Shown here is a 109-nucleotide RNA from Kyrpidia spormannii, a member of the family "Glycine riboswitch aptamer". Taxonomically the source falls in Kyrpidia (Bacteria, Bacillati, Caryophanales, Alicyclobacillaceae). About the family: This family represents the bacterial glycine riboswitch.
RNA sequence: UCUCUGGAGAGUGCCCCGGCGAUGGUCGGGGCCACCAAAGGGGUAACCUGGACGGCCGGCGAAUGGACCGGCGGCCAUCCGGGCAUGCUCUCAGGUUGAAGGACAGAGA
Numbered sequence: 001u002c003u004c005u006g007g008a009g010a011g012u013g014c015c016c017c018g019g020c021g022a023u024g025g026u027c028g029g030g031g032c033c034a035c036c037a038a039a040g041g042g043g044u045a046a047c048c049u050g051g052a053c054g055g056c057c058g059g060c061g062a063a064u065g066g067a068c069c070g071g072c073g074g075c076c077a078u079c080c081g082g083g084c085a086u087g088c089u090c091u092c093a094g095g096u097u098g099a100a101g102g103a104c105a106g107a108g109a
Stems, first nucleotide, its partner, number of pairs: 001109006013032007034096003038091001041090003047083006